RNA sequence: AAGUGAGGUGAGGCUGAGCCCCUGACCUUGAACCUGGGAUCCUCACCAUGAUCUCCUGGUGCUUCUGUCAGGGGUAGAUUCCUUGUUAG
Numbered sequence: 001a002a003g004u005g006a007g008g009u010g011a012g013g014c015u016g017a018g019c020c021c022c023u024g025a026c027c028u029u030g031a032a033c034c035u036g037g038g039a040u041c042c043u044c045a046c047c048a049u050g051a052u053c054u055c056c057u058g059g060u061g062c063u064u065c066u067g068u069c070a071g072g073g074g075u076a077g078a079u080u081c082c083u084u085g086u087u088a089g
Stems, first nucleotide, its partner, number of pairs: 006087002010084004018075009032060003036055006
RNA: mir-3070 microRNA precursor family